A member of the RNA family "Plastid-psbN 5UTR RNA" from Chamaesiphon minutus, 61 nucleotides long. The family's consensus secondary structure was predicted with LocARNA. The family has 63 seed sequences and 2,345 matches in Rfam 15.1. The match comes from Rfam's covariance-model search (50 bits). A reference for the family is Richter et al. (2023), "Retrograde signaling in plants: A critical review focusing on the GUN pathway and beyond", Plant Commun. The source organism's lineage runs through Bacteria, Bacillati, Cyanophyceae, Gomontiellales and Chamaesiphon minutus. Rfam describes the family as follows. Plastid psbN is a non-coding RNA (ncRNA) recognised in plastids. It was reported as a conserved 11 stem-loop in the prime untranslated region (5UTR) of psbN genes. It has been reported that the motif is retained in a subset of mature transcripts in barley, which can suggests a possible role in transcript alternative 5 prime processing. It is annotated as a cis-regulatory element.
[Rfam]
RNA sequence: AAAUACGCCCAUAACUGGGGUAGUACCCCAACCAGGAACGACUUUACCAUAUUCAGCAUUU
Numbered sequence: 001a002a003a004u005a006c007g008c009c010c011a012u013a014a015c016u017g018g019g020g021u022a023g024u025a026c027c028c029c030a031a032c033c034a035g036g037a038a039c040g041a042c043u044u045u046a047c048c049a050u051a052u053u054c055a056g057c058a059u060u061u
Stems, first nucleotide, its partner, number of pairs: 017045005023039002026036002